[Rfam]
RNA sequence: AUGUCCUCUAGAGUUCCCUUAGAACACUUCACUGGGGGACAUGUUUCUUUCUUUGACUCAUUUAGGGCCAAAGAACUUUGCCUACUGAAGUGUUUGGGGGAACUCCUGAGUCCAU
Dot-bracket structure: .....(((..((((((((((.((((((((((.((((............................................)))).))))))))))))))))))))..))).....

Shown here is a 115-nucleotide RNA from Coffea arabica, a member of the family "mir-395 microRNA precursor family".
Rfam describes the family as follows. mir-395 was identified in both Arabidopsis thaliana and Oryza sativa computationally and was later experimentally verified. mir-395 is thought to target mRNAs coding for ATP sulphurylases. The mature sequence is excised from the 3' arm of the hairpin.
The match comes from Rfam's covariance-model search (70 bits).
On this family, see Jones-Rhoades and Bartel, Mol Cell 2004: "Computational Identification of Plant MicroRNAs and Their Targets, Including a Stress-Induced miRNA".